[Rfam]
The record is a 93-nucleotide RNA sequence, which matches "c-di-GMP-II-GAG riboswitch aptamer" in Rfam. The sequence is in the family's curated seed alignment. Gene Ontology terms of the family: cyclic-di-GMP binding and regulation of gene expression. The base pairs follow the family's consensus structure, which is taken from published work. On this family, see Weinberg et al., Proc Natl Acad Sci U S A 2017: "Bioinformatic analysis of riboswitch structures uncovers variant classes with altered ligand specificity".
RNA sequence: GCGCAAGGUAGAGGCUAAGAACCCCGCCCUACGGAAGAUACGGGCACCCGAGAGGGCCUGGGGGAGCCAGUGGUGCGACCGGCUACCUUCUAU
Numbered sequence: 001g002c003g004c005a006a007g008g009u010a011g012a013g014g015c016u017a018a019g020a021a022c023c024c025c026g027c028c029c030u031a032c033g034g035a036a037g038a039u040a041c042g043g044g045c046a047c048c049c050g051a052g053a054g055g056g057c058c059u060g061g062g063g064g065a066g067c068c069a070g071u072g073g074u075g076c077g078a079c080c081g082g083c084u085a086c087c088u089u090c091u092a093u
Base pairs, nucleotide, nucleotide: 001093003091005089006088007087008086009085010084011083013068014067015066022062023061024060026058028056029055042080043079044076045075046074047073048072